The record is a 96-nucleotide sequence from Anisodus acutangulus, which matches "Small nucleolar RNA Z43" in Rfam. Rfam 15.1 lists 859 matches to the family in 240 species. On this family, see Chen et al., Nucleic Acids Res 2003: "The high diversity of snoRNAs in plants: identification and comparative study of 120 snoRNA genes from Oryza sativa". Lineage of the source: Eukaryota > Euphyllophyta > Pentapetalae > Solanales > Anisodus. By type it is a C/D-box small nucleolar RNA.
RNA sequence: GGACAAUGACGACAUUCAGAUUGGUCUCGUUCGUCGUAAUGGUGUAAAUCCACCUUGCCGACCAUCCUGAUAUAUCACCACCCAUAAACUGAGUCC
Dot-bracket structure: ((((.........................................((.......))....................................))))
Numbered sequence: 001g002g003a004c005a006a007u008g009a010c011g012a013c014a015u016u017c018a019g020a021u022u023g024g025u026c027u028c029g030u031u032c033g034u035c036g037u038a039a040u041g042g043u044g045u046a047a048a049u050c051c052a053c054c055u056u057g058c059c060g061a062c063c064a065u066c067c068u069g070a071u072a073u074a075u076c077a078c079c080a081c082c083c084a085u086a087a088a089c090u091g092a093g094u095c096c
Stems, first nucleotide, its partner, number of pairs: 001096004046056002